The record is a 62-nucleotide RNA sequence from Richelia intracellularis, which matches "Nitrogen stress-induced RNA 1" in Rfam. Pairs were carried over by alignment from the consensus structure. A reference for the family is Ionescu et al. (2010), "Heterocyst-specific transcription of NsiR1, a non-coding RNA encoded in a tandem array of direct repeats in cyanobacteria", J Mol Biol.
[Rfam]
RNA sequence: UGGUAGAUGCACCCUGAUAACUCAUUCCCCCAGUUGGUUUACUCUAACUGGGGGUUUUUUUG
Numbered sequence: 001u002g003g004u005a006g007a008u009g010c011a012c013c014c015u016g017a018u019a020a021c022u023c024a025u026u027c028c029c030c031c032a033g034u035u036g037g038u039u040u041a042c043u044c045u046a047a048c049u050g051g052g053g054g055u056u057u058u059u060u061u062g
Stems, first nucleotide, its partner, number of pairs: 002013003027054011

Background:
NCBI's taxonomy places the organism under Bacteria, Bacillati, Nostocales, Nostocaceae, Richelia intracellularis. The family's RNA type in Rfam is small RNA.